[Rfam]
RNA sequence: GACAGUCGCCGCUUCGUCGUCGUCCUCUUCGGGGGAGACGGGCGGAGGGGAGGAAAGUCCGGGCUCCAUAGGGCAGGGUGCCAGGUAACGCCUGGGGGGGAAACCCACGACCAGUGCAACAGAGAGCAAACCGCCGAUGGCCCGCGUAAGCGGGAUCAGGUAAGGGUGAAAGGGUGCGGUAAGAGCGCACCGCGCGGCUGGUAACAGUCCGUGGCACGGUAAACUCCACCCGGAGCAAGGCCAAAUAGGGGUUCAUAAGGUACGGCCCGUACUGAACCCGGGUAGGCUGCUUGAGCCAGUGAGCGAUUGCUGGCCUAGAUGAAUGACUGUCCACGACAGAACCCGGC
Numbered sequence: 001g002a003c004a005g006u007c008g009c010c011g012c013u014u015c016g017u018c019g020u021c022g023u024c025c026u027c028u029u030c031g032g033g034g035g036a037g038a039c040g041g042g043c044g045g046a047g048g049g050g051a052g053g054a055a056a057g058u059c060c061g062g063g064c065u066c067c068a069u070a071g072g073g074c075a076g077g078g079u080g081c082c083a084g085g086u087a088a089c090g091c092c093u094g095g096g097g098g099g100g101a102a103a104c105c106c107a108c109g110a111c112c113a114g115u116g117c118a119a120c121a122g123a124g125a126g127c128a129a130a131c132c133g134c135c136g137a138u139g140g141c142c143c144g145c146g147u148a149a150g151c152g153g154g155a156u157c158a159g160g161u162a163a164g165g166g167u168g169a170a171a172g173g174g175u176g177c178g179g180u181a182a183g184a185g186c187g188c189a190c191c192g193c194g195c196g197g198c199u200g201g202u203a204a205c206a207g208u209c210c211g212u213g214g215c216a217c218g219g220u221a222a223a224c225u226c227c228a229c230c231c232g233g234a235g236c237a238a239g240g241c242c243a244a245a246u247a248g249g250g251g252u253u254c255a256u257a258a259g260g261u262a263c264g265g266c267c268c269g270u271a272c273u274g275a276a277c278c279c280g281g282g283u284a285g286g287c288u289g290c291u292u293g294a295g296c297c298a299g300u301g302a303g304c305g306a307u308u309g310c311u312g313g314c315c316u317a318g319a320u321g322a323a324u325g326a327c328u329g330u331c332c333a334c335g336a337c338a339g340a341a342c343c344c345g346g347c
Stems, first nucleotide, its partner, number of pairs: 001331007009050002012047006057347001059346005064235004071268004076231005081095005096108001097106003109226002114224002116220002131165002133161003138158003142154002173191006192215001193213005198207003239288004249279006259273005295314008
A member of the RNA family "Bacterial RNase P class A" from Phyllobacterium myrsinacearum, 347 nucleotides long. The family's consensus secondary structure is taken from published work. The family's RNA type in Rfam is ribozyme. NCBI's taxonomy places the organism under Bacteria, Pseudomonadati, Alphaproteobacteria, Phyllobacteriaceae, Phyllobacterium.